Shown here is a 146-nucleotide RNA from Gadus morhua, a member of the family "Small nucleolar RNA SNORA79". The source organism's lineage runs through Eukaryota, Metazoa, Bilateria, Paracanthopterygii and Gadus. The family's consensus secondary structure was predicted with RNAalifold. From the family's description: ACA65 (SNORA79) is a member of the H/ACA class of snoRNAs that guide the sites of modification of uridines to pseudouridines. This snoRNA was identified by computational screening and its expression in mouse experimentally verified by Northern blot and primer extension analysis. The literature on the family includes a 2006 paper in RNA by Schattner et al., "A computational screen for mammalian pseudouridylation guide H/ACA RNAs". A search with the family's covariance model found it, with a score of 71 bits. It is annotated as an H/ACA-box small nucleolar RNA. The family has 25 seed sequences and 944 matches in Rfam 15.1.
RNA sequence: UGACGUCAGUUCCUCCUCCUGCUCUCAGUUCAGCAGUGUGGAUUUUAUGAUGUCACAGAAUAAACUGGUGUCCAAUUCACCCGGGAGAUAUUUGGGGGUGGUGGUGCUGCCCCUGUAACCUCCAGGUUUUGCUGGACCCCACAAAU
Dot-bracket structure: ((((((((.....(((.(.((((........))))..).))).....))))))))............(.(((((......(.(((.(.((.....(((((.......)))))...)).).))).).......))))))........